[Rfam]
RNA sequence: CAAUCCAUGCAGUGAUGCAUGGUUGAACUAUCAGAAGUCAGCAGAAGUCAUAGUACCACGCGAAACGCAUUAGCGUGGGAAGGAC
Numbered sequence: 001c002a003a004u005c006c007a008u009g010c011a012g013u014g015a016u017g018c019a020u021g022g023u024u025g026a027a028c029u030a031u032c033a034g035a036a037g038u039c040a041g042c043a044g045a046a047g048u049c050a051u052a053g054u055a056c057c058a059c060g061c062g063a064a065a066c067g068c069a070u071u072a073g074c075g076u077g078g079g080a081a082g083g084a085c
Stems, first nucleotide, its partner, number of pairs: 001025002005022007038045002047085003056078006
Shown here is an 85-nucleotide RNA from Clostridium sp. JN-9, a member of the family "Group II catalytic intron D1-D4-1". Pairs were carried over by alignment from the consensus structure. The organism belongs to Clostridium, within Bacteria. A search with the family's covariance model found it, with a score of 78 bits.